The family of this 110-nucleotide sequence from Canis lupus is "mir-8864 microRNA precursor family". Rfam links the family to the GO terms miRNA-mediated post-transcriptional gene silencing and RISC complex.
RNA sequence: AUGAGAUAGGGGCCCCUGGAUGGCUGAGUCAGUUGGCCUCUUCUGACCUCCUCUCAGGGUCAUGAUCUCUGGGUCCUGGAGCUUAGCCCCUGGUGAGGCUCCCUGCUCAG
Numbered sequence: 001a002u003g004a005g006a007u008a009g010g011g012g013c014c015c016c017u018g019g020a021u022g023g024c025u026g027a028g029u030c031a032g033u034u035g036g037c038c039u040c041u042u043c044u045g046a047c048c049u050c051c052u053c054u055c056a057g058g059g060u061c062a063u064g065a066u067c068u069c070u071g072g073g074u075c076c077u078g079g080a081g082c083u084u085a086g087c088c089c090c091u092g093g094u095g096a097g098g099c100u101c102c103c104u105g106c107u108c109a110g
Base pairs, nucleotide, nucleotide: 002109003108004107005106007105008104009103010102011101012099013098014097015095016093017092018091019090022088023087024086025085026084027083028082029081030078031077032076035075036074037073038072039071042065043064044062045061046060047059048058049057

Pairs were carried over by alignment from the consensus structure, which was predicted with RNAalifold.